[Rfam]
RNA: Small nucleolar RNA SNORA61
RNA sequence: AUCUUCUGGUUUCCUUUCCCAUCUUAUCUGAACCCUGGUCUGGGUGGUCAUAAAAGGAGGAAAAGUAACUUUAAACUGACCUCACAGGGCUUUGUAGCAUGUUGGUUAGUUUCAAUCAGGU
Numbered sequence: 001a002u003c004u005u006c007u008g009g010u011u012u013c014c015u016u017u018c019c020c021a022u023c024u025u026a027u028c029u030g031a032a033c034c035c036u037g038g039u040c041u042g043g044g045u046g047g048u049c050a051u052a053a054a055a056g057g058a059g060g061a062a063a064a065g066u067a068a069c070u071u072u073a074a075a076c077u078g079a080c081c082u083c084a085c086a087g088g089g090c091u092u093u094g095u096a097g098c099a100u101g102u103u104g105g106u107u108a109g110u111u112u113c114a115a116u117c118a119g120g121u
Stems, first nucleotide, its partner, number of pairs: 002060005019047005026039003076109006